A member of the RNA family "Small nucleolar RNA SNORD17" from Chelonoidis abingdonii, 249 nucleotides long.
From the family's description: The snoRNA HBI-43 belongs to the C/D family of snoRNAs, guiding 2'O-ribose methylation at position U3797 of the 28S rRNA. Pseudouridylation in position U3797 is predicted to be guided by the H/ACA snoRNA ACA48.
The literature on the family includes a 2001 paper in EMBO J by Huttenhofer et al., "RNomics: an experimental approach that identifies 201 candidates for novel, small, non-messenger RNAs in mouse".

RNA sequence: GUGAAAUGAUGAUGAAGUUUAUCCAUUCUCUGAGUGCUGCUGCACUGCCUUCCCUGCAGCACCUAGAUUCCUGUUCUAGGGUCUCUGUGCUGGGUAGCCUCCAAACAUCCUCCAGCCUUUCAGUGUUCUGCUGUGGGCUACUGGAGGGUUUGGCUGGCUGCCUGCAGGAGCGGGACAGAGCCAGCAGGGCUGGAGCCCCUUUCCAUGGGGGCUCCAUCUCAACCAAGACGAGUGAUGCUCUCUGAUCAC
Numbered sequence: 001g002u003g004a005a006a007u008g009a010u011g012a013u014g015a016a017g018u019u020u021a022u023c024c025a026u027u028c029u030c031u032g033a034g035u036g037c038u039g040c041u042g043c044a045c046u047g048c049c050u051u052c053c054c055u056g057c058a059g060c061a062c063c064u065a066g067a068u069u070c071c072u073g074u075u076c077u078a079g080g081g082u083c084u085c086u087g088u089g090c091u092g093g094g095u096a097g098c099c100u101c102c103a104a105a106c107a108u109c110c111u112c113c114a115g116c117c118u119u120u121c122a123g124u125g126u127u128c129u130g131c132u133g134u135g136g137g138c139u140a141c142u143g144g145a146g147g148g149u150u151u152g153g154c155u156g157g158c159u160g161c162c163u164g165c166a167g168g169a170g171c172g173g174g175a176c177a178g179a180g181c182c183a184g185c186a187g188g189g190c191u192g193g194a195g196c197c198c199c200u201u202u203c204c205a206u207g208g209g210g211g212c213u214c215c216a217u218c219u220c221a222a223c224c225a226a227g228a229c230g231a232g233u234g235a236u237g238c239u240c241u242c243u244g245a246u247c248a249c
Base pairs, nucleotide, nucleotide: 010248011247012246013245017241024234025233026232027231028230030227031226034223035222039185040184041183042182043180045178046177047176049174050173051170053168054167055166057164058163062089064087065086066085069081070080071079072078094161095160096159097158098157099156108146109144114139115138116137117136119135121133122132123131124130125129187220188219189218191216192215193214194213196211197210198209199208200207